[Rfam]
RNA sequence: UGGACUGGUCGCGACUGGCGUUGGGUGGGUCACCACCGGGGAGCGGCAUGCUGUUGGGACACCGCGGAUCGUACGCCUGGGCCGGGGGU
Numbered sequence: 001u002g003g004a005c006u007g008g009u010c011g012c013g014a015c016u017g018g019c020g021u022u023g024g025g026u027g028g029g030u031c032a033c034c035a036c037c038g039g040g041g042a043g044c045g046g047c048a049u050g051c052u053g054u055u056g057g058g059a060c061a062c063c064g065c066g067g068a069u070c071g072u073a074c075g076c077c078u079g080g081g082c083c084g085g086g087g088g089u
Base pairs, nucleotide, nucleotide: 003052005050008047009046010045011044012043015040016039017077018076019075020074021073025036026035027034028033065084066083067082069081070080
Shown here is an 89-nucleotide RNA from Sinomonas sp. R1AF57, a member of the family "ZMP/ZTP riboswitch aptamer (pfl RNA motif)". It scores 43 bits against the family's covariance model. The family's consensus secondary structure is taken from published work.